RNA sequence: CCCGCGGUUAGACGGAAAGACCCCGUGCACCUUCACUACAGCUUCGCACUGGCAUCAGGCACAACAUGUGCAGGAUAGGUGGUAGACUUUGAAACCAGGACGCCAGUCCUGGUGGAGUCAUCCUUGAGAUACCACCCUUGUUCUGCUUGAUGUCUAACCGCGACCCGUUAUCCGGGUCCGGGACCCUGCGUGGUGGGUAGUUUGACUGGGGCGGUCGCCUCCUAAAGCGUAACGGAGGCGCGCGAAGGUUGGCUCAGAGCGGUCGGAAAUCGCUCGUUGAGUGCAAUGGCAGAAGCCAGCCUGACUGCAAGACUGACAAGUCGAGCAGAGUCGAAAGACGGCCAUAGUGAUCCGGUGGUCCCAAGUGGGAGGGCCAUCGCUCAACGGAUAAAAGGUACGCCGGGGAUAACAGGCUGAUACUGCCCAAGAGUCCAUAUCGACGGCAGUGUUUGGCACCUCGAUGUCGGCUCAUCUCAUCCUGGGGCUGGAGCAGGUCCCAAGGGUAUGGCUGUUCGCCAUUUAAAGAGGUACGUGAGCUGGGUUUAGAACGUCGUGAGACAGUUCGGUCCCUAUCUGCCGUGGGUGUA
Numbered sequence: 001c002c003c004g005c006g007g008u009u010a011g012a013c014g015g016a017a018a019g020a021c022c023c024c025g026u027g028c029a030c031c032u033u034c035a036c037u038a039c040a041g042c043u044u045c046g047c048a049c050u051g052g053c054a055u056c057a058g059g060c061a062c063a064a065c066a067u068g069u070g071c072a073g074g075a076u077a078g079g080u081g082g083u084a085g086a087c088u089u090u091g092a093a094a095c096c097a098g099g100a101c102g103c104c105a106g107u108c109c110u111g112g113u114g115g116a117g118u119c120a121u122c123c124u125u126g127a128g129a130u131a132c133c134a135c136c137c138u139u140g141u142u143c144u145g146c147u148u149g150a151u152g153u154c155u156a157a158c159c160g161c162g163a164c165c166c167g168u169u170a171u172c173c174g175g176g177u178c179c180g181g182g183a184c185c186c187u188g189c190g191u192g193g194u195g196g197g198u199a200g201u202u203u204g205a206c207u208g209g210g211g212c213g214g215u216c217g218c219c220u221c222c223u224a225a226a227g228c229g230u231a232a233c234g235g236a237g238g239c240g241c242g243c244g245a246a247g248g249u250u251g252g253c254u255c256a257g258a259g260c261g262g263u264c265g266g267a268a269a270u271c272g273c274u275c276g277u278u279g280a281g282u283g284c285a286a287u288g289g290c291a292g293a294a295g296c297c298a299g300c301c302u303g304a305c306u307g308c309a310a311g312a313c314u315g316a317c318a319a320g321u322c323g324a325g326c327a328g329a330g331u332c333g334a335a336a337g338a339c340g341g342c343c344a345u346a347g348u349g350a351u352c353c354g355g356u357g358g359u360c361c362c363a364a365g366u367g368g369g370a371g372g373g374c375c376a377u378c379g380c381u382c383a384a385c386g387g388a389u390a391a392a393a394g395g396u397a398c399g400c401c402g403g404g405g406a407u408a409a410c411a412g413g414c415u416g417a418u419a420c421u422g423c424c425c426a427a428g429a430g431u432c433c434a435u436a437u438c439g440a441c442g443g444c445a446g447u448g449u450u451u452g453g454c455a456c457c458u459c460g461a462u463g464u465c466g467g468c469u470c471a472u473c474u475c476a477u478c479c480u481g482g483g484g485c486u487g488g489a490g491c492a493g494g495u496c497c498c499a500a501g502g503g504u505a506u507g508g509c510u511g512u513u514c515g516c517c518a519u520u521u522a523a524a525g526a527g528g529u530a531c532g533u534g535a536g537c538u539g540g541g542u543u544u545a546g547a548a549c550g551u552c553g554u555g556a557g558a559c560a561g562u563u564c565g566g567u568c569c570c571u572a573u574c575u576g577c578c579g580u581g582g583g584u585g586u587a
Base pairs, nucleotide, nucleotide: 001583002582003581004580005579006578007577008576010575011574012573014570015569022404023403024402025401027400028399029396030395031394032393033392035201036200037199038198042193043192045190046189047188048187051154052153053152054151055150056149057148058147059146060145061144063142064141065140066139068137078136079135080134081133082132085119086118087117094113095112096111097110098109099108100107101106158181159180160179162178163177164176165175166174167173204216205215206214207213217239218238219237220236221235222234240385242342243341248300249299250298251297252296253295254280255279257275258274259273260272261271262270281290282289305328306327307326308325311322312321313320330339331338332337353379354378355377356376357375358374359373361372362371413454414453415452417451418448419447420446421445422444423443424442428438429437465540466538467537468536469535470532471529472528473527474526475525478503479502481498482497483496484495485494486493505519506518507517508516509515546564547563548562549561550559551558552557